[Rfam]
RNA sequence: AUGUCCUGCUCGUGAUCGUCUUCUCAACCUUCACCGGCAGGCAGCAGGACGAAGGGCUCCCGCAAGGACGUGACUUGUGGGGGCCCUUC
Numbered sequence: 001a002u003g004u005c006c007u008g009c010u011c012g013u014g015a016u017c018g019u020c021u022u023c024u025c026a027a028c029c030u031u032c033a034c035c036g037g038c039a040g041g042c043a044g045c046a047g048g049a050c051g052a053a054g055g056g057c058u059c060c061c062g063c064a065a066g067g068a069c070g071u072g073a074c075u076u077g078u079g080g081g082g083g084c085c086c087u088u089c
Stems, first nucleotide, its partner, number of pairs: 002043002005041006012034004018028002051089016
RNA: sodF sRNA
Organism: Streptomyces sp. cf386